This 71-nucleotide sequence from Macleaya cordata belongs to the Rfam family "tRNA". Lineage of the source: Eukaryota > Streptophyta > Streptophytina > Tracheophyta > Macleaya.
Nucleotides: 071
Base pairs, nucleotide, nucleotide: 001070002069003068004067005066006065007064010025011024012023013022027040028039029038030037031036047063048062049061050060051059
Number, partner (000 for none) and nucleotide at each position: 001070u002069c003068g004067a005066c006065c007064u008000a009000a010025g011024c012023u013022c014000a015000a016000c017000a018000g019000g020000c021000a022013g023012a024011g025010c026000a027040g028039a029038g030037g031036a032000c033000c034000g035000a036031u037030c038029c039028u040027c041000u042000a043000g044000g045000u046000u047063g048062c049061u050060g051059g052000u053000u054000c055000a056000a057000a058000u059051c060050c061049a062048g063047c064007a065006g066005g067004u068003c069002g070001a071000a